[Rfam]
RNA sequence: AUGCCUUAAACUUGUAAGAAAAAUGAUUUGGGGUGAUGGCCAAGUCCUCAUGCUAAUGUGAGACGAAUUUUUGGGUGGGUAAAGAUUGCCCCUAAAGUGACAUACCUACUUUUCUGGAUGCCUGGGUGAAGUGAUUUGCCUG
Numbered sequence: 001a002u003g004c005c006u007u008a009a010a011c012u013u014g015u016a017a018g019a020a021a022a023a024u025g026a027u028u029u030g031g032g033g034u035g036a037u038g039g040c041c042a043a044g045u046c047c048u049c050a051u052g053c054u055a056a057u058g059u060g061a062g063a064c065g066a067a068u069u070u071u072u073g074g075g076u077g078g079g080u081a082a083a084g085a086u087u088g089c090c091c092c093u094a095a096a097g098u099g100a101c102a103u104a105c106c107u108a109c110u111u112u113u114c115u116g117g118a119u120g121c122c123u124g125g126g127u128g129a130a131g132u133g134a135u136u137u138g139c140c141u142g
Stems, first nucleotide, its partner, number of pairs: 005018004025046007047062005076142005083137007092126002095123001097121003101117001

Overview:
Shown here is a 142-nucleotide RNA from Nannospalax galili, a member of the family "U12 minor spliceosomal RNA". A search with the family's covariance model found it, with a score of 67 bits. The family is grouped with related families in Rfam's "U2 clan". The pairing is the family consensus, mapped onto this sequence.